[Rfam]
RNA sequence: UUCCACAGCUACUGGUCUGAAACUGUUCUGAACUGUAGCAGUUGCGGUAUUCCAUCUGUGGGAAAUAAACUGUUGCACAGUAUCACACUCCUUUCUCAGACCUGAUGAAAGGGACUCCUGUGUAACAGACAAAA
Dot-bracket structure: ..((((..........(((.(((((.............))))).)))..........)))).............(((((.........(((((((...........))))))).....)))))...........
Numbered sequence: 001u002u003c004c005a006c007a008g009c010u011a012c013u014g015g016u017c018u019g020a021a022a023c024u025g026u027u028c029u030g031a032a033c034u035g036u037a038g039c040a041g042u043u044g045c046g047g048u049a050u051u052c053c054a055u056c057u058g059u060g061g062g063a064a065a066u067a068a069a070c071u072g073u074u075g076c077a078c079a080g081u082a083u084c085a086c087a088c089u090c091c092u093u094u095c096u097c098a099g100a101c102c103u104g105a106u107g108a109a110a111g112g113g114a115c116u117c118c119u120g121u122g123u124a125a126c127a128g129a130c131a132a133a134a
Stems, first nucleotide, its partner, number of pairs: 003061004017047003021043005075123005089113007

Shown here is a 134-nucleotide sequence from Sphenodon punctatus, a member of the family "Small nucleolar RNA SNORA41". The family has 31 seed sequences and 676 matches in Rfam 15.1. The family's RNA type in Rfam is H/ACA-box small nucleolar RNA. NCBI's taxonomy places the organism under Eukaryota, Craniata, Sarcopterygii, Lepidosauria, Sphenodon.